[Rfam]
RNA: U2 spliceosomal RNA
Organism: Penicillium vulpinum
RNA sequence: CCAGCUCUCUUUGCCAUCAUGGCUAAGAUCAAGUGUAGUAUCUGUUCUUACCAGUUUAAUCACUGAUAUCCCUGCAUUGUAGGACAUAUUGAUUAUUCUAUUUUUUGAAACCAGUGACUGGCCUCCGUGCUUGCAUACGCCAGUUGCACAGUGUCACUGGGCUCACACUACCCCCGGUUGACGCGAACUCCU
Numbered sequence: 001c002c003a004g005c006u007c008u009c010u011u012u013g014c015c016a017u018c019a020u021g022g023c024u025a026a027g028a029u030c031a032a033g034u035g036u037a038g039u040a041u042c043u044g045u046u047c048u049u050a051c052c053a054g055u056u057u058a059a060u061c062a063c064u065g066a067u068a069u070c071c072c073u074g075c076a077u078u079g080u081a082g083g084a085c086a087u088a089u090u091g092a093u094u095a096u097u098c099u100a101u102u103u104u105u106u107g108a109a110a111c112c113a114g115u116g117a118c119u120g121g122c123c124u125c126c127g128u129g130c131u132u133g134c135a136u137a138c139g140c141c142a143g144u145u146g147c148a149c150a151g152u153g154u155c156a157c158u159g160g161g162c163u164c165a166c167a168c169u170a171c172c173c174c175c176g177g178u179u180g181a182c183g184c185g186a187a188c189u190c191c192u
Base pairs, nucleotide, nucleotide: 008028009027010026013023014022015021049068050067052065053064054063071083072082073081074080075079114147115146116145117144118143119142120141121140127136128135129134151184152183153182154181155180156178157177158176159175160174161173